The family of this 87-nucleotide RNA sequence from Oceanobacillus halophilus is "c-di-GMP-I riboswitch aptamer". Its Rfam clan is "c-di-GMP_I riboswitch clan". Pairs were carried over by alignment from the consensus structure, which is taken from published work. The source organism's lineage runs through Bacteria, Bacillota, Bacilli, Bacillaceae and Oceanobacillus. Gene Ontology term of the family: cyclic-di-GMP binding. A search with the family's covariance model found it, with a score of 79 bits.
RNA sequence: UAAUGUUAAAGGCAAACUAUCUGAAAAGAUAGGACGCAAAGCUCUAGGGUCUAAAGCUUUUUAAGCUACGAUCGCCUAGCUACCAAG
Numbered sequence: 001u002a003a004u005g006u007u008a009a010a011g012g013c014a015a016a017c018u019a020u021c022u023g024a025a026a027a028g029a030u031a032g033g034a035c036g037c038a039a040a041g042c043u044c045u046a047g048g049g050u051c052u053a054a055a056g057c058u059u060u061u062u063a064a065g066c067u068a069c070g071a072u073c074g075c076c077u078a079g080c081u082a083c084c085a086a087g
Stems, first nucleotide, its partner, number of pairs: 012037002017032006040081004046077003049072003056066004